This 73-nucleotide sequence from Glycine max belongs to the Rfam family "Small nucleolar RNA Z105". A search with the family's covariance model found it, with a score of 51 bits. Taxonomically the source falls in Glycine subgen. Soja (Eukaryota, Streptophyta, Tracheophyta, Euphyllophyta).
[Rfam]
RNA sequence: UAGGCAUGGUGAUGAUUGUUUAUUGUCAUCUGAUGAAUCAUUUGAUGAAUUCCAAACCUCCUACUCAUUCUGA
Numbered sequence: 001u002a003g004g005c006a007u008g009g010u011g012a013u014g015a016u017u018g019u020u021u022a023u024u025g026u027c028a029u030c031u032g033a034u035g036a037a038u039c040a041u042u043u044g045a046u047g048a049a050u051u052c053c054a055a056a057c058c059u060c061c062u063a064c065u066c067a068u069u070c071u072g073a
Base pairs, nucleotide, nucleotide: 006068007067008066009065026048027047030044